The family of this 105-nucleotide RNA from Cercocebus atys is "Mitochondrial DNA control region secondary structure A". A reference for the family is Pereira et al. (2008), "Evidence for variable selective pressures at a large secondary structure of the human mitochondrial DNA control region", Mol Biol Evol. It is annotated as an antisense RNA. NCBI's taxonomy places the organism under Eukaryota, Vertebrata, Euarchontoglires, Catarrhini, Cercocebus. The match comes from Rfam's covariance-model search (80 bits).

RNA sequence: AUAUUCUAUGGUGUGCAAACUUUAAAUGCAACUUAAGUAUUAAAUUAUUUUCAUACACUUUUAUGUAAGUCGUGCAUUACUGCUAGCCAACAUGAAUAUUAUAUA
Dot-bracket structure: ....(.(((((...(((....((((.(...).))))((..(.(.......).)...))....(((((.....)))))...)))....)..)))).).........